[Rfam]
RNA sequence: GGCGGGGUACUGCUCAGCCCGUUUCUGAUCUAUGCGGUGCUGGCGCUGCUGCUGACCUUCGCGGUGCGGCUGCUGCUGCGUCUGACCCCGCUGGGGCGCUGGGUGUGGCAUGAAGCCCUGUUCGACACUGCACUG
Numbered sequence: 001g002g003c004g005g006g007g008u009a010c011u012g013c014u015c016a017g018c019c020c021g022u023u024u025c026u027g028a029u030c031u032a033u034g035c036g037g038u039g040c041u042g043g044c045g046c047u048g049c050u051g052c053u054g055a056c057c058u059u060c061g062c063g064g065u066g067c068g069g070c071u072g073c074u075g076c077u078g079c080g081u082c083u084g085a086c087c088c089c090g091c092u093g094g095g096g097c098g099c100u101g102g103g104u105g106u107g108g109c110a111u112g113a114a115g116c117c118c119u120g121u122u123c124g125a126c127a128c129u130g131c132a133c134u135g
Stems, first nucleotide, its partner, number of pairs: 002067003007062002012052002015048004019043003023039001068133001075097003079093002098131002101128001103126002108121003
This 135-nucleotide RNA from Pseudomonas sp. 1239 belongs to the Rfam family "Pseudomonas sRNA P18". Lineage of the source: Bacteria > Pseudomonadota > Gammaproteobacteria > Pseudomonadaceae > Pseudomonas. A search with the family's covariance model found it, with a score of 92 bits. Pairs were carried over by alignment from the consensus structure, which was predicted with WAR. The literature on the family includes a 2006 paper in Nucleic Acids Res by Livny et al., "Identification of 17 Pseudomonas aeruginosa sRNAs and prediction of sRNA-encoding genes in 10 diverse pathogens using the bioinformatic tool sRNAPredict2".